[Rfam]
RNA sequence: UGCUCCGGCGGGACGGGUGCUCUUUCCCAAGGAACACGGGGGCGAAAGAACCCCGCCAAGCCCCCCUCCCCCGCCCGCGGCCGCCCUCACUCGCAUGGGUGAACAUCCCCAAAUCGGCUGGAUUCGGGAGCGGUUGCCUGCCCUACGCUCGCCGCAACCCAGCCGCAGACGUGCGUCGGCCCCCGCACUGGGCUGGCAUCCCAGCGCGAGGGCCUGACCACCGAGGAAGACAGGACCUUCCUG
Numbered sequence: 001u002g003c004u005c006c007g008g009c010g011g012g013a014c015g016g017g018u019g020c021u022c023u024u025u026c027c028c029a030a031g032g033a034a035c036a037c038g039g040g041g042g043c044g045a046a047a048g049a050a051c052c053c054c055g056c057c058a059a060g061c062c063c064c065c066c067u068c069c070c071c072c073g074c075c076c077g078c079g080g081c082c083g084c085c086c087u088c089a090c091u092c093g094c095a096u097g098g099g100u101g102a103a104c105a106u107c108c109c110c111a112a113a114u115c116g117g118c119u120g121g122a123u124u125c126g127g128g129a130g131c132g133g134u135u136g137c138c139u140g141c142c143c144u145a146c147g148c149u150c151g152c153c154g155c156a157a158c159c160c161a162g163c164c165g166c167a168g169a170c171g172u173g174c175g176u177c178g179g180c181c182c183c184c185g186c187a188c189u190g191g192g193c194u195g196g197c198a199u200c201c202c203a204g205c206g207c208g209a210g211g212g213c214c215u216g217a218c219c220a221c222c223g224a225g226g227a228a229g230a231c232a233g234g235a236c237c238u239u240c241c242u243g
Base pairs, nucleotide, nucleotide: 007222008221010219016075017074018073019072087102088101089100090099091098092097117153119151120150121149178214179213180212181211182210184208185207186206190201191200192199225241226240227239228238229237

Overview
Streptomyces sRNA 4677: a 243-nucleotide RNA sequence from Streptomyces echinoruber. The family's RNA type in Rfam is small RNA. On this family, see Hindra et al., PLoS One 2014: "Complex intra-operonic dynamics mediated by a small RNA in Streptomyces coelicolor". It scores 165 bits against the family's covariance model. The source organism's lineage runs through Bacteria, Bacillati, Kitasatosporales, Streptomycetaceae and Streptomyces.